RNA sequence: AACCGCUCGGGCAAGAGCGCCGCAGAGAACCUGCAGGCUGCCUGACGCGGAGCGUAUCGCGGUCCGGCGACCACGGAUGUACUGGCGCCAGUCGCCGCGAUGAACGGAGAAAGGUCGGGUCAGCCCGGCCUUUUUUGCU
Numbered sequence: 001a002a003c004c005g006c007u008c009g010g011g012c013a014a015g016a017g018c019g020c021c022g023c024a025g026a027g028a029a030c031c032u033g034c035a036g037g038c039u040g041c042c043u044g045a046c047g048c049g050g051a052g053c054g055u056a057u058c059g060c061g062g063u064c065c066g067g068c069g070a071c072c073a074c075g076g077a078u079g080u081a082c083u084g085g086c087g088c089c090a091g092u093c094g095c096c097g098c099g100a101u102g103a104a105c106g107g108a109g110a111a112a113g114g115u116c117g118g119g120u121c122a123g124c125c126c127g128g129c130c131u132u133u134u135u136u137g138c139u
Stems, first nucleotide, its partner, number of pairs: 003050004007045003019038003055102005062093001064091001068087002071085003107136012